[Rfam]
RNA sequence: GGUAUUGUUUGCCCCACUAUAAGCCCCGGAAACUUAAUUGGUGUCAAACAGCAC
Number, nucleotide and partner (000 for none) at each position: 001g000002g000003u000004a000005u000006u050007g049008u048009u047010u046011g045012c000013c000014c000015c040016a039017c000018u037019a000020u036021a035022a034023g033024c000025c000026c000027c000028g000029g000030a000031a000032a000033c023034u022035u021036a020037a018038u000039u016040g015041g000042u000043g000044u000045c011046a010047a009048a008049c007050a006051g000052c000053a000054c000
The record is a 54-nucleotide RNA sequence from Schleiferilactobacillus perolens, which matches "Ribosomal protein L13 leader" in Rfam. The family's consensus secondary structure was predicted with CMfinder. It is annotated as a cis-regulatory leader. Gene Ontology term of the family: regulation of gene expression. A search with the family's covariance model found it, with a score of 47 bits. This family is a putative r-protein leader autoregulatory structure found in B. subtilis and other low-GC Gram-positive bacteria. It is located in the 5' untranslated regions of mRNAs encoding the L13-S9 (rplM-rpsI) ribosomal protein operon.